Rfam assigns this 37-nucleotide RNA sequence from Flavobacterium branchiophilum to the family "DUF805b RNA". NCBI's taxonomy places the organism under Bacteria, Pseudomonadati, Flavobacteriia, Flavobacteriaceae, Flavobacterium branchiophilum. Rfam's curators put it in the seed alignment.
[Rfam]
RNA sequence: AGAGCGAUACCCGAAAAGCUUAAAAAUAGAGUAGGGA
Numbered sequence: 001a002g003a004g005c006g007a008u009a010c011c012c013g014a015a016a017a018g019c020u021u022a023a024a025a026a027u028a029g030a031g032u033a034g035g036g037a
Stems, first nucleotide, its partner, number of pairs: 002021004010036003